A member of the RNA family "Histone 3' UTR stem-loop" from Psylliodes chrysocephalus, 47 nucleotides long. A reference for the family is Williams and Marzluff (1995), "The sequence of the stem and flanking sequences at the 3' end of histone mRNA are critical determinants for the binding of the stem-loop binding protein", Nucleic Acids Res. The source organism's lineage runs through Eukaryota, Opisthokonta, Pancrustacea, Coleoptera and Psylliodes. Rfam describes the family as follows. The mRNAs of metazoan histone genes lack a poly-A tail. 3' end processing occurs at a site between a highly conserved stem-loop (modelled by this family) and a purine rich region around 20 nts downstream (the histone downstream element, or HDE).
RNA sequence: CAAACGGUUCUUUUCAGAACCACAAUAUACAUUUUAAAAUAUAAGAU
Dot-bracket structure: .....((((((....))))))..........................